[Rfam]
RNA sequence: ACUUUCCUUGUCAUGGGGUGGUUGGGAAGCUCAAUGAACGUGUGGUGAGGGCUCCCCUGCUGACACCAUAAUCAACACAUACGCACCACCUGAACCCCGAGUUCAGAUCACGGUGCAAUUUUUGGAAAA
Numbered sequence: 001a002c003u004u005u006c007c008u009u010g011u012c013a014u015g016g017g018g019u020g021g022u023u024g025g026g027a028a029g030c031u032c033a034a035u036g037a038a039c040g041u042g043u044g045g046u047g048a049g050g051g052c053u054c055c056c057c058u059g060c061u062g063a064c065a066c067c068a069u070a071a072u073c074a075a076c077a078c079a080u081a082c083g084c085a086c087c088a089c090c091u092g093a094a095c096c097c098c099g100a101g102u103u104c105a106g107a108u109c110a111c112g113g114u115g116c117a118a119u120u121u122u123u124g125g126a127a128a129a
Stems, first nucleotide, its partner, number of pairs: 006018004021060002024057001026055001028053005038046002083116005090106006
U4atac minor spliceosomal RNA: a 129-nucleotide RNA from Mola mola.
The family is grouped with related families in Rfam's "U4 clan".
Pairs were carried over by alignment from the consensus structure, which is taken from published work.
Rfam links the family to the GO terms pre-mRNA 5'-splice site binding, spliceosomal tri-snRNP complex assembly and U4atac snRNP.
U4atac is an essential component of the minor U12-type spliceosome complex which is required for removal of the rarer class of eukaryotic introns (AT-AC, U12-type).